[Rfam]
RNA sequence: AAAAAAAAUGAGCAAUAACUUCUCUCUUGUUUUAUCAAGAUGGCGUUAUUGCUCAAUUUU
Number, nucleotide and partner (000 for none) at each position: 001a000002a000003a000004a000005a000006a058007a057008a000009u055010g054011a053012g052013c051014a050015a049016u048017a047018a000019c000020u000021u000022c043023u000024c000025u040026c039027u038028u037029g036030u000031u000032u000033u000034a000035u000036c029037a028038a027039g026040a025041u000042g000043g022044c000045g000046u000047u017048a016049u015050u014051g013052c012053u011054c010055a009056a000057u007058u006059u000060u000
This 60-nucleotide RNA sequence from Lactuca saligna belongs to the Rfam family "Plastid-psbA-4 3UTR RNA". Its Rfam clan is "Plastid-psbA 3UTR RNA clan". The family's consensus secondary structure was predicted with LocARNA. Taxonomically the source falls in Lactuca (Eukaryota, Streptophyta, Euphyllophyta, asterids). Rfam's curators write: Plastid psbA-4 is a non-coding RNA (ncRNA) present in plastids. It was identified in inverted repeat sequences in the 3 prime untranslate region (3UTR) of photosystem II quinone-binding protein (psbA). The literature on the family includes a 2023 paper in Plant Commun by Richter et al., "Retrograde signaling in plants: A critical review focusing on the GUN pathway and beyond".